[Rfam]
RNA sequence: UGGGUAUUGCCAAAGUGCUUACAGUGCAGGUAGUACUAUGCAACGCUACUGCAGUGGAGGCACUUCUAGCAAUACCCG
Numbered sequence: 001u002g003g004g005u006a007u008u009g010c011c012a013a014a015g016u017g018c019u020u021a022c023a024g025u026g027c028a029g030g031u032a033g034u035a036c037u038a039u040g041c042a043a044c045g046c047u048a049c050u051g052c053a054g055u056g057g058a059g060g061c062a063c064u065u066c067u068a069g070c071a072a073u074a075c076c077c078g
Base pairs, nucleotide, nucleotide: 004075005074006073007072009070010069013065014064015063016062017061018060019059020058022056023055025053026052027051029050030049031048032047033046

Overview
A member of the RNA family "mir-17 microRNA precursor family" from Gadus morhua, 78 nucleotides long. Pairs were carried over by alignment from the consensus structure, which was predicted with RNAalifold. Rfam links the family to the GO terms miRNA-mediated post-transcriptional gene silencing and RISC complex. From the family's description: This family represents the microRNA (miRNA) precursor mir-17, family, which includes mir-20, mir-91, and mir-103. miRNAs are transcribed as ~70nt precursors (modelled here) and subsequently processed by the Dicer enzyme to give a ~22nt product. A search with the family's covariance model found it, with a score of 71 bits. The organism belongs to Gadus, within Eukaryota.